[Rfam]
RNA sequence: GUAUACCCCGGAGGAGUGCUAUUGAGAACACAUGUGGUGGUUUUGAUGGUGGCUGAAUCCUGAAUGUAACCACCACUCGUGUUCUCAGGUCACCCCUCUGGGGUACUC
Numbered sequence: 001g002u003a004u005a006c007c008c009c010g011g012a013g014g015a016g017u018g019c020u021a022u023u024g025a026g027a028a029c030a031c032a033u034g035u036g037g038u039g040g041u042u043u044u045g046a047u048g049g050u051g052g053c054u055g056a057a058u059c060c061u062g063a064a065u066g067u068a069a070c071c072a073c074c075a076c077u078c079g080u081g082u083u084c085u086c087a088g089g090u091c092a093c094c095c096c097u098c099u100g101g102g103g104u105a106c107u108c
Base pairs, nucleotide, nucleotide: 007102008101011098012097013096014095016093017092018091024086025085026084027083028082029081030080031079
A member of the RNA family "MIR398 microRNA precursor family" from Papaver somniferum, 108 nucleotides long.
A search with the family's covariance model found it, with a score of 60 bits.
The literature on the family includes a 2010 paper in Nucleic Acids Res by Zeng et al., "Conservation and divergence of microRNAs and their functions in Euphorbiaceous plants".